RNA: Ribosomal protein L20 leader
RNA sequence: AAAUGAAAGCAGAAGCACCCGCUUCUCGCCUUGUAGCAAUUGUUGCUGGGCAGAUAGUUAUCCAAUUUACUUGGGUUACGUGCGGGUUCGUAUACGAGCUCGUUUUUUUGUACCCCA
Number, nucleotide and partner (000 for none) at each position: 001a000002a000003a000004u000005g000006a000007a000008a000009g000010c000011a026012g025013a024014a023015g022016c021017a000018c000019c000020c000021g016022c015023u014024u013025c012026u011027c000028g051029c050030c049031u000032u000033g046034u045035a044036g043037c042038a000039a000040u000041u000042g037043u036044u035045g034046c033047u000048g000049g030050g029051c028052a000053g000054a000055u000056a000057g000058u000059u000060a000061u000062c000063c000064a000065a000066u000067u000068u000069a000070c000071u000072u000073g000074g000075g000076u000077u000078a000079c000080g000081u000082g103083c102084g101085g100086g099087u098088u097089c096090g095091u000092a000093u000094a000095c090096g089097a088098g087099c086100u085101c084102g083103u082104u000105u000106u000107u000108u000109u000110g000111u000112a000113c000114c000115c000116c000117a000